[Rfam]
RNA sequence: GGAAGUGUGUGCUAGUGAUGGCACAGCUGAACAUUGAUCGCUAACUAGUAGAUAUAUGGCAGAUCUGCUCAGUGGGUGUUGUCACGUGGUCGCUUCAAGUAGCUUGUGCUCGGCUCCCGAUGCGCCUACAAACCGAGGCCUGUCUCGUGGCCCCUGGCACCUGUAGGCCCGCACGGUCGAGUCUUCACGUCGCUCCUCGAACUACCGCGAUUUCCAAAUUGGGGGGCAAUCGAAUAGGUCAGACGAGGUAAUUGUCGCUUCCAUAUACAAGGCGCUGCAGUUCUGCAGUGUGCCCUUUUUGUCG
Numbered sequence: 001g002g003a004a005g006u007g008u009g010u011g012c013u014a015g016u017g018a019u020g021g022c023a024c025a026g027c028u029g030a031a032c033a034u035u036g037a038u039c040g041c042u043a044a045c046u047a048g049u050a051g052a053u054a055u056a057u058g059g060c061a062g063a064u065c066u067g068c069u070c071a072g073u074g075g076g077u078g079u080u081g082u083c084a085c086g087u088g089g090u091c092g093c094u095u096c097a098a099g100u101a102g103c104u105u106g107u108g109c110u111c112g113g114c115u116c117c118c119g120a121u122g123c124g125c126c127u128a129c130a131a132a133c134c135g136a137g138g139c140c141u142g143u144c145u146c147g148u149g150g151c152c153c154c155u156g157g158c159a160c161c162u163g164u165a166g167g168c169c170c171g172c173a174c175g176g177u178c179g180a181g182u183c184u185u186c187a188c189g190u191c192g193c194u195c196c197u198c199g200a201a202c203u204a205c206c207g208c209g210a211u212u213u214c215c216a217a218a219u220u221g222g223g224g225g226g227c228a229a230u231c232g233a234a235u236a237g238g239u240c241a242g243a244c245g246a247g248g249u250a251a252u253u254g255u256c257g258c259u260u261c262c263a264u265a266u267a268c269a270a271g272g273c274g275c276u277g278c279a280g281u282u283c284u285g286c287a288g289u290g291u292g293c294c295c296u297u298u299u300u301g302u303c304g
Stems, first nucleotide, its partner, number of pairs: 001262007015085005027072003032067002036065004040060004271294003274289005
Arthropod 7SK RNA: a 304-nucleotide RNA sequence from Nasonia vitripennis. Rfam 15.1 lists 229 matches to the family in 137 species. A reference for the family is Gruber et al. (2008), "Arthropod 7SK RNA", Mol Biol Evol.